[Rfam]
RNA sequence: UCCUGGCAGACGCUCGCGUCUGCGCUUGUUUAUGGAUGAUGAUGCUGGUAGCCCAAGUGGAGGCCGCUUUGG
Numbered sequence: 001u002c003c004u005g006g007c008a009g010a011c012g013c014u015c016g017c018g019u020c021u022g023c024g025c026u027u028g029u030u031u032a033u034g035g036a037u038g039a040u041g042a043u044g045c046u047g048g049u050a051g052c053c054c055a056a057g058u059g060g061a062g063g064c065c066g067c068u069u070u071g072g
Stems, first nucleotide, its partner, number of pairs: 006023007024067002028064004034058001037055002
The family of this 72-nucleotide RNA is "Hepatitis C virus stem-loop SL2531 and SL2549AU".
Rfam's curators put it in the seed alignment.
By type it is a cis-regulatory element.
The literature on the family includes a 2016 paper in Mol Cell by Pirakitikulr et al., "The Coding Region of the HCV Genome Contains a Network of Regulatory RNA Structures".
Pairs were carried over by alignment from the consensus structure, which was predicted with RNAfold.